A member of the RNA family "SAM riboswitch aptamer (S box leader)" from Thermoanaerobacteraceae bacterium SP2, 117 nucleotides long. Gene Ontology term of the family: regulation of gene expression. NCBI's taxonomy places the organism under Bacteria, Bacillati, Clostridia, Thermoanaerobacterales, Thermoanaerobacteraceae.
[Rfam]
RNA sequence: CUCUUAUCAAGAGCGGUGGAGGGACUGGCCCGAUGAAACCCGGCAACCGUCAGGAGAUUUUUCUCCUGAAAUGGUGCCAAUUCCUGCAAAACGCAGCGGCGUUUUGAGAGAUGAGAG
Numbered sequence: 001c002u003c004u005u006a007u008c009a010a011g012a013g014c015g016g017u018g019g020a021g022g023g024a025c026u027g028g029c030c031c032g033a034u035g036a037a038a039c040c041c042g043g044c045a046a047c048c049g050u051c052a053g054g055a056g057a058u059u060u061u062u063c064u065c066c067u068g069a070a071a072u073g074g075u076g077c078c079a080a081u082u083c084c085u086g087c088a089a090a091a092c093g094c095a096g097c098g099g100c101g102u103u104u105u106g107a108g109a110g111a112u113g114a115g116a117g
Stems, first nucleotide, its partner, number of pairs: 001117008013041001015040003021031003025086001027084002042078004047074002050069006082109001087106006